[Rfam]
RNA sequence: UCGACCGUGAGGUUAAAUCUGAAGGAAGCCGGCGGCAACUCUUCGGCCUGAGGAACACGAAUCUCAUAUGAGGCCAGCGUUCGUUGGAUGAGCCUGCAUGACAAGGUAAAGUUCGUAUUGCUAAAGGCGAGCGAAGGUAAAUGAGAUAGCCGCAAAAUAAGAAGCGAUUCGAC
Numbered sequence: 001u002c003g004a005c006c007g008u009g010a011g012g013u014u015a016a017a018u019c020u021g022a023a024g025g026a027a028g029c030c031g032g033c034g035g036c037a038a039c040u041c042u043u044c045g046g047c048c049u050g051a052g053g054a055a056c057a058c059g060a061a062u063c064u065c066a067u068a069u070g071a072g073g074c075c076a077g078c079g080u081u082c083g084u085u086g087g088a089u090g091a092g093c094c095u096g097c098a099u100g101a102c103a104a105g106g107u108a109a110a111g112u113u114c115g116u117a118u119u120g121c122u123a124a125a126g127g128c129g130a131g132c133g134a135a136g137g138u139a140a141a142u143g144a145g146a147u148a149g150c151c152g153c154a155a156a157a158u159a160a161g162a163a164g165c166g167a168u169u170c171g172a173c
Stems, first nucleotide, its partner, number of pairs: 001016001003014004028173001030171003035165002040159001042157002046151001048149003062146006073138003078133006086114004092107004
The family of this 173-nucleotide sequence from Aneurinibacillus sp. XH2 is "Group II catalytic intron D1-D4-3". About the family: Group II introns are found in rRNA, tRNA and mRNA of organelles in fungi, plants and protists, and also in mRNA in bacteria. The source organism's lineage runs through Bacteria, Bacillati, Bacillota, Caryophanales and Aneurinibacillus. The pairing is the family consensus, mapped onto this sequence.